[Rfam]
RNA sequence: AUAUAUCUUCAGGGCAGGGUGAAAUUCCCGACCGGCGGUAAAGCCCGCGAACUCUUUUAUUAUCUAAAAGAGCUGAUCUGGUGAAAUUCCAGGGCCGACAGUAAAGUCUGGAUGGGAGAAGAUAAUU
Numbered sequence: 001a002u003a004u005a006u007c008u009u010c011a012g013g014g015c016a017g018g019g020u021g022a023a024a025u026u027c028c029c030g031a032c033c034g035g036c037g038g039u040a041a042a043g044c045c046c047g048c049g050a051a052c053u054c055u056u057u058u059a060u061u062a063u064c065u066a067a068a069a070g071a072g073c074u075g076a077u078c079u080g081g082u083g084a085a086a087u088u089c090c091a092g093g094g095c096c097g098a099c100a101g102u103a104a105a106g107u108c109u110g111g112a113u114g115g116g117a118g119a120a121g122a123u124a125a126u127u
Base pairs, nucleotide, nucleotide: 004124005123006122007121008120009119010118017029018028019027031107032106033097034096035048036047037046038045043095044094052072053071077093078092079091080090081089099110100109101108

The family of this 127-nucleotide RNA from Anaerobranca californiensis is "FMN riboswitch aptamer (RFN element)". The base pairs follow the family's consensus structure, which is taken from published work. The source organism's lineage runs through Bacteria, Bacillati, Bacillota, Eubacteriales and Anaerobranca californiensis.